[Rfam]
RNA sequence: UGUCUCCUCCAAGUCUCUAUGAAUUGGAUUUAGCCCGCUCCGCAAGGAGGCGGGCUUUUUUUU
Numbered sequence: 001u002g003u004c005u006c007c008u009c010c011a012a013g014u015c016u017c018u019a020u021g022a023a024u025u026g027g028a029u030u031u032a033g034c035c036c037g038c039u040c041c042g043c044a045a046g047g048a049g050g051c052g053g054g055c056u057u058u059u060u061u062u063u
Stems, first nucleotide, its partner, number of pairs: 008028005014022002032056008
RNA: Betaproteobacteria toxic small RNA
Organism: Noviherbaspirillum sedimenti